The record is a 96-nucleotide RNA sequence from Methyloradius palustris, which matches "DUF3800-V RNA" in Rfam. It scores 54 bits against the family's covariance model.
[Rfam]
RNA sequence: AUAUAGACGGGUAAAUCCUUAUACGUGCCUUAGGUGUUUCCUUCCAUCGGUUGGUGAUAAGCCUAGGGGCAAGAGCGUAUCUGGGGCCGUCUUUUU
Numbered sequence: 001a002u003a004u005a006g007a008c009g010g011g012u013a014a015a016u017c018c019u020u021a022u023a024c025g026u027g028c029c030u031u032a033g034g035u036g037u038u039u040c041c042u043u044c045c046a047u048c049g050g051u052u053g054g055u056g057a058u059a060a061g062c063c064u065a066g067g068g069g070c071a072a073g074a075g076c077g078u079a080u081c082u083g084g085g086g087c088c089g090u091c092u093u094u095u096u
Base pairs, nucleotide, nucleotide: 001096003094005092006091008089009088022079023078024077025076026075028073029067030066031065032064033063034062035061040054041053044050045049